[Rfam]
Record summary: Shown here is a 95-nucleotide RNA from Collybia nuda, a member of the family "tRNA". Rfam classes the family as a transfer RNA. The source organism's lineage runs through Eukaryota, Opisthokonta, Agaricomycetidae, Agaricales and Collybia. Gene Ontology term of the family: triplet codon-amino acid adaptor activity.
RNA sequence: GCCGUGGUAGCGCAAUGGUAGCGCGUUGCUUUCCGGAGUUGCAGUCACGUGACCCACUUAGGCAAAGGUUGUGGGUUCGAUCCCCAUCCUCGGUA
Numbered sequence: 001g002c003c004g005u006g007g008u009a010g011c012g013c014a015a016u017g018g019u020a021g022c023g024c025g026u027u028g029c030u031u032u033c034c035g036g037a038g039u040u041g042c043a044g045u046c047a048c049g050u051g052a053c054c055c056a057c058u059u060a061g062g063c064a065a066a067g068g069u070u071g072u073g074g075g076u077u078c079g080a081u082c083c084c085c086a087u088c089c090u091c092g093g094u095a
Base pairs, nucleotide, nucleotide: 001094002093003092004091006089007088010024011023012022013021026065027064028063029062030061071087072086073085074084075083